[Rfam]
Shown here is a 120-nucleotide RNA sequence from Glycine max, a member of the family "MIR1520 microRNA precursor family". NCBI's taxonomy places the organism under Eukaryota, Streptophytina, Fabales, Papilionoideae, Glycine subgen. Soja. Its family is annotated with RISC complex and miRNA-mediated post-transcriptional gene silencing in the Gene Ontology. Rfam 15.1 lists 1,934 matches to the family in 15 species.

RNA sequence: UCUUUAUUGGAUGAUGACUAUCACGUGUCAUGUUCUGAUUGGUCAAUGAAAACAAAAAGGAAUUUAAUCUUUCAUGGAGUUGACAUCCAAUCAGAAUAUGACACAUGACAGUCAUCAUCC
Dot-bracket structure: ....................(((.((..(((.((((.(((((............................................))))).)))).)))..)).)))............